RNA sequence: GUCGAGCUCAGUAACAAGUGCUUGUGACCCAAGUGGGGACAAUUAGUUGGUGGAACCCUGGCUCGGGCCUCGGGUCGGAUCUGUUGUGGCAUGUGUCUGGGCUGCCCAGUCCAAGCUGAGAGUGAACCGUGUGUGCUUAGCGAAGGCUUUGCUCAGGCGGUUCCUAAAGUCGGAGGGCAAUGCGUGAGGCUGAUUUCACAGAGCAGCGACCACUUCCCUCUCUCAGCAGUGGACGGAUCACAGCUCAACGCCACUCGGAUCCACUAUGGCUCGCUGGCUCGUACCCAGUUGAACCACCAAUUUU
Dot-bracket structure: (((((((.(........).))))....(((....))))))....(((((((((..(.((((..(((.(..(((((((((((((..((((........(((((((.((.(((((.((((((((.(((((((.((.((..(((....)))..)).)).)))))))(....)..(((((......(((....(((......)))....)))....)))))..))))))))..)))))))....)))))))...)))).))))))).....))))))..)..)))..).)))..)..)))))))))..
Numbered sequence: 001g002u003c004g005a006g007c008u009c010a011g012u013a014a015c016a017a018g019u020g021c022u023u024g025u026g027a028c029c030c031a032a033g034u035g036g037g038g039a040c041a042a043u044u045a046g047u048u049g050g051u052g053g054a055a056c057c058c059u060g061g062c063u064c065g066g067g068c069c070u071c072g073g074g075u076c077g078g079a080u081c082u083g084u085u086g087u088g089g090c091a092u093g094u095g096u097c098u099g100g101g102c103u104g105c106c107c108a109g110u111c112c113a114a115g116c117u118g119a120g121a122g123u124g125a126a127c128c129g130u131g132u133g134u135g136c137u138u139a140g141c142g143a144a145g146g147c148u149u150u151g152c153u154c155a156g157g158c159g160g161u162u163c164c165u166a167a168a169g170u171c172g173g174a175g176g177g178c179a180a181u182g183c184g185u186g187a188g189g190c191u192g193a194u195u196u197c198a199c200a201g202a203g204c205a206g207c208g209a210c211c212a213c214u215u216c217c218c219u220c221u222c223u224c225a226g227c228a229g230u231g232g233a234c235g236g237a238u239c240a241c242a243g244c245u246c247a248a249c250g251c252c253a254c255u256c257g258g259a260u261c262c263a264c265u266a267u268g269g270c271u272c273g274c275u276g277g278c279u280c281g282u283a284c285c286c287a288g289u290u291g292a293a294c295c296a297c298c299a300a301u302u303u304u
Stems, first nucleotide, its partner, number of pairs: 001040003004023004009018001028037003045302009056291001058288003061284001064281003068276001071273006077262007086254004098247007106236002109234005115227008124163007132155002135152002139148003164169001172217005183208003190201003
The record is a 304-nucleotide sequence from Microthlaspi erraticum, which matches "Plant signal recognition particle RNA" in Rfam. It is annotated as a non-coding RNA gene. Clan: SRP clan. The organism belongs to Microthlaspi, within Eukaryota. A reference for the family is Wild et al. (2002), "Towards the structure of the mammalian signal recognition particle", Curr Opin Struct Biol.